[Rfam]
RNA sequence: AAGAGUAAUAGGCAAACCUUCUGAAAAGUGGGGGCGCAAAACUAUGGGUCUAAAGACUUGCGCGUCUAUGACUGCCAGGUUGCAUCA
Numbered sequence: 001a002a003g004a005g006u007a008a009u010a011g012g013c014a015a016a017c018c019u020u021c022u023g024a025a026a027a028g029u030g031g032g033g034g035c036g037c038a039a040a041a042c043u044a045u046g047g048g049u050c051u052a053a054a055g056a057c058u059u060g061c062g063c064g065u066c067u068a069u070g071a072c073u074g075c076c077a078g079g080u081u082g083c084a085u086c087a
Base pairs, nucleotide, nucleotide: 012037013036017032018031019030021028022027040081041080042079043078045077046076047075048072049071050070055066056065057064
RNA: c-di-GMP-I riboswitch aptamer
Organism: Sporomusa acidovorans